Rfam assigns this 583-nucleotide part of an RNA from Halococcus morrhuae to the family "Archaeal large subunit ribosomal RNA".

[Rfam]
Nucleotides: 583
Stems, first nucleotide, its partner, number of pairs: 001578007010570003014565002022399004027395002029391005035193004042185007051158003055154014078140005085123003100113005162173004196209001197207003210232006235339002241293006247273002250268006274283002298325009327336001329334001350377005356372005408449003412446001413443007423433002460535001461533004465527001466524005473498002477492005501513004541559004545554003
Number, partner (000 for none) and nucleotide at each position: 001578c002577c003576c004575c005574c006573a007572a008000g009000g010570g011569g012568a013000a014565g015564c016000g017000a018000a019000g020000a021000c022399c023398c024397u025396a026000u027395a028394g029391a030390g031389c032388u033387u034000u035193a036192c037191u038190g039000c040000a041000a042185g043184c044183u045182g046181u047180c048179g049000c050000u051158g052157g053156g054000a055154c056153a057152c058151g059150g060149u061148c062147g063146c064145u065144a066143g067142u068141g069000u070000g071000c072000a073000g074000g075000a076000u077000a078140g079139g080138u081137a082136g083000g084000a085123g086122u087121c088000g089000u090000c091000a092000c093000g094000c095000a096000g097000g098000c099000a100113c101112c102111c103110g104109c105000g106000c107000u108000a109104g110103c111102g112101g113100g114000c115000c116000g117000c118000c119000g120000a121087g122086a123085c124000a125000c126000c127000a128000c129000u130000g131000a132000a133000a134000u135000a136082c137081u138080a139079c140078c141068c142067a143066c144065u145064a146063g147062u148061g149060a150059c151058u152057g153056u154055g155000a156053c157052c158051c159000u160000u161000a162173c163172u164171c165170c166000g167000g168000g169000a170165g171164g172163a173162g174000g175000a176000c177000a178000c179048c180047g181046g182045u183044a184043g185042c186000u187000g188000g189000g190038c191037a192036g193035u194000u195000u196209g197207a198206c199205u200000g201000g202000g203000g204000c205199g206198g207197u208000a209196c210232g211231g212230g213229c214228u215227u216000g217000a218000a219000a220000a221000g222000a223000u224000a225000u226000c227215g228214a229213g230212c231211c232210c233000g234000c235339c236338c237000g238000a239000a240000g241293a242292u243291c244290a245289c246288c247273u248272c249000a250268u251267c252266c253265g254264g255263g256000u257000c258000g259000g260000a261000g262000a263255c264254c265253c266252g267251g268250a269000a270000u271000a272248g273247a274283g275282c276000g277000c278000a279000a280000g281000a282275g283274c284000a285000a286000a287000a288246g289245g290244u291243g292242g293241u294000c295000u296000g297000a298325c299324a300323g301322u302321g303320u304319u305318c306317u307000c308000u309000c310000c311000a312000a313000c314000a315000c316000g317306a318305g319304a320303a321302c322301g323300c324299u325298g326000a327336c328000g329334c330000g331000a332000a333000a334329g335000c336327g337000c338236g339235g340000u341000c342000u343000a344000g345000c346000g347000a348000a349000c350377g351376g352375a353374u354373g355000a356372g357371c358370c359369u360368g361000c362000u363000u364000g365000a366000u367000g368360c369359g370358g371357g372356c373354c374353a375352u376351u377350u378000a379000c380000g381000a382000c383000a384000g385000a386000a387033a388032a389031g390030c391029u392000a393000c394028c395027u396025u397024a398023g399022g400000g401000a402000u403000a404000a405000c406000a407000g408449a409448g410447u411000c412446g413443u414442c415441a416440c417439c418438c419437g420000c421000a422000a423433g424432a425000g426000c427000a428000c429000a430000u431000a432424u433423c434000g435000a436000c437419c438418g439417g440416g441415u442414g443413g444000c445000u446412u447410g448409c449408u450000a451000c452000c453000u454000c455000g456000a457000u458000g459000u460535c461533g462532g463531u464530u465527c466524c467523c468522u469521c470520c471000a472000u473498c474497c475000u476000g477492c478491c479490c480489g481488u482000g483000c484000a485000g486000c487000a488481g489480c490479g491478g492477g493000c494000a495000a496000g497474g498473g499000u500000g501513a502512g503511g504510u505000u506000g507000u508000u509000c510504g511503c512502c513501u514000a515000u516000u517000a518000a519000a520470g521469g522468a523467g524466g525000u526000c527465g528000u529000g530464a531463g532462c533461u534000g535460g536000g537000u538000u539000u540000a541559g542558a543557c544556c545554g546553u547552c548000g549000u550000g551000a552547g553546a554545c555000a556544g557543g558542u559541c560000g561000g562000c563000u564015g565014c566000u567000a568012u569011c570010u571000a572007u573006u574005g575004g576003g577002g578001g579000u580000g581000u582000c583000a